[Rfam]
RNA sequence: GGAAUAUAAGAAACCGUCUCUUAAUUUUUAACUAAAAGAGUUAAGAGUCGGCUCUUAAUUUUUUUAGUUAAAAAUUAAGAGACAGUUUCUUAUAUUCC
Numbered sequence: 001g002g003a004a005u006a007u008a009a010g011a012a013a014c015c016g017u018c019u020c021u022u023a024a025u026u027u028u029u030a031a032c033u034a035a036a037a038g039a040g041u042u043a044a045g046a047g048u049c050g051g052c053u054c055u056u057a058a059u060u061u062u063u064u065u066a067g068u069u070a071a072a073a074a075u076u077a078a079g080a081g082a083c084a085g086u087u088u089c090u091u092a093u094a095u096u097c098c
Base pairs, nucleotide, nucleotide: 001098002097003096004095005094006093007092008091009090010089011088012087013086014085016083017082018081019080020079021078022077023076024075025074026073027072028071029070030069031068032067033066034065035064036063037062038061039060041058042057043056044055045054046053047052
This 98-nucleotide RNA from Brassica carinata belongs to the Rfam family "MIR9563 microRNA precursor family". Rfam links the family to the GO terms miRNA-mediated post-transcriptional gene silencing and RISC complex. Lineage of the source: Eukaryota > Viridiplantae > eudicotyledons > Brassicaceae > Brassica.